[Rfam]
RNA sequence: GCCCACCACCUUCCACAACGGAUCGUCCGGCACGUUCCUGCCGGUAGAAGGGGUCCAUU
Numbered sequence: 001g002c003c004c005a006c007c008a009c010c011u012u013c014c015a016c017a018a019c020g021g022a023u024c025g026u027c028c029g030g031c032a033c034g035u036u037c038c039u040g041c042c043g044g045u046a047g048a049a050g051g052g053g054u055c056c057a058u059u
Stems, first nucleotide, its partner, number of pairs: 009051005015045001027044006